The family of this 76-nucleotide RNA from Sphenodon punctatus is "Mammalian CPEB3 ribozyme". Lineage of the source: Eukaryota > Dipnotetrapodomorpha > Sauropsida > Sphenodontia > Sphenodon. The match comes from Rfam's covariance-model search (35 bits). The family's consensus secondary structure is taken from published work. Rfam links the family to the GO term RNA nuclease activity.

RNA sequence: UUAAACUCCAAGUUGACCAUUGCAGGAAUGUUCACAUCAUGGCCACUGACAAAUUCUUGAAUCUAUUAAUUCUGUU
Numbered sequence: 001u002u003a004a005a006c007u008c009c010a011a012g013u014u015g016a017c018c019a020u021u022g023c024a025g026g027a028a029u030g031u032u033c034a035c036a037u038c039a040u041g042g043c044c045a046c047u048g049a050c051a052a053a054u055u056c057u058u059g060a061a062u063c064u065a066u067u068a069a070u071u072c073u074g075u076u
Base pairs, nucleotide, nucleotide: 014045015044017042018041022075023074024073025072026071027070028040029039030038051064053062054061055060